[Rfam]
The family of this 143-nucleotide RNA sequence from Cephalotus follicularis is "Small nucleolar RNA U19". NCBI's taxonomy places the organism under Eukaryota, Mesangiospermae, Gunneridae, Pentapetalae, Cephalotus. The family's RNA type in Rfam is H/ACA-box small nucleolar RNA. The literature on the family includes a 2002 paper in Curr Biol by Marker et al., "Experimental RNomics: identification of 140 candidates for small non-messenger RNAs in the plant Arabidopsis thaliana". Rfam 15.1 lists 421 matches to the family in 201 species. The family's consensus secondary structure was predicted with WAR. It scores 60 bits against the family's covariance model.
RNA sequence: AUCUGGCUUAGUUAAGAGGCAUACAACAAUGAGAUCAAAAUAUCAGCUUUUGAUAUUUUGGUCAAUUUAACUGAGGCUUUUUUUUUUUUUUUUGAAGGCAAAUUAUUCUAUAAAUUGUCCACUAAAAGAAGCCUUAGACAUCA
Numbered sequence: 001a002u003c004u005g006g007c008u009u010a011g012u013u014a015a016g017a018g019g020c021a022u023a024c025a026a027c028a029a030u031g032a033g034a035u036c037a038a039a040a041u042a043u044c045a046g047c048u049u050u051u052g053a054u055a056u057u058u059u060g061g062u063c064a065a066u067u068u069a070a071c072u073g074a075g076g077c078u079u080u081u082u083u084u085u086u087u088u089u090u091u092u093u094g095a096a097g098g099c100a101a102a103u104u105a106u107u108c109u110a111u112a113a114a115u116u117g118u119c120c121a122c123u124a125a126a127a128g129a130a131g132c133c134u135u136a137g138a139c140a141u142c143a
Base pairs, nucleotide, nucleotide: 004021005020007018008017009016033063034062035061036060037059040056041055042054043053044052071137072136073135074134075133076132077131081128082127083126084125